[Rfam]
This 331-nucleotide RNA sequence from Nannospalax galili belongs to the Rfam family "7SK RNA".
The source organism's lineage runs through Eukaryota, Bilateria, Teleostomi, Myomorpha and Nannospalax.
It is annotated as a non-coding RNA gene.
RNA sequence: GGAUGUGAGGGCGAUCUGGCUGAGACACCUGUCACCCCAUUGAUCGCCAGGGUUGAUUUGGCUGAUUUGGCUGGCUAGGUGGGUGUCCCCUUCCUCCCUCAAUGCUCCACUUGCGUCCCUCCCGAAGCUGCAUGCUUGGUUGAAGAGGACGACCUUCCCCGAUAGAGGAGGGCCGGUCUUCAGUCAAGGGUAUACAACUAGCUGCACUUCCCUGCUAGAACCUCCAAACAAGCUCUCAAGGUCCAUUUGUAGAAGAACGUGGGGUAGUCAAGCUUCCAAGACUCCAGACACAUCCAAAUGAGGCACUGCAAGUGGCAGUCUGCCUUUCUUU
Numbered sequence: 001g002g003a004u005g006u007g008a009g010g011g012c013g014a015u016c017u018g019g020c021u022g023a024g025a026c027a028c029c030u031g032u033c034a035c036c037c038c039a040u041u042g043a044u045c046g047c048c049a050g051g052g053u054u055g056a057u058u059u060g061g062c063u064g065a066u067u068u069g070g071c072u073g074g075c076u077a078g079g080u081g082g083g084u085g086u087c088c089c090c091u092u093c094c095u096c097c098c099u100c101a102a103u104g105c106u107c108c109a110c111u112u113g114c115g116u117c118c119c120u121c122c123c124g125a126a127g128c129u130g131c132a133u134g135c136u137u138g139g140u141u142g143a144a145g146a147g148g149a150c151g152a153c154c155u156u157c158c159c160c161g162a163u164a165g166a167g168g169a170g171g172g173c174c175g176g177u178c179u180u181c182a183g184u185c186a187a188g189g190g191u192a193u194a195c196a197a198c199u200a201g202c203u204g205c206a207c208u209u210c211c212c213u214g215c216u217a218g219a220a221c222c223u224c225c226a227a228a229c230a231a232g233c234u235c236u237c238a239a240g241g242u243c244c245a246u247u248u249g250u251a252g253a254a255g256a257a258c259g260u261g262g263g264g265u266a267g268u269c270a271a272g273c274u275u276c277c278a279a280g281a282c283u284c285c286a287g288a289c290a291c292a293u294c295c296a297a298a299u300g301a302g303g304c305a306c307u308g309c310a311a312g313u314g315g316c317a318g319u320c321u322g323c324c325u326u327u328c329u330u331u
Stems, first nucleotide, its partner, number of pairs: 001108003006101006013093002018090002024087010035074002037070003042067004046062003116171002118168004122139004127135002140162003147158003201273003207267002210264006222255002225252001228250005296331003300326005305319005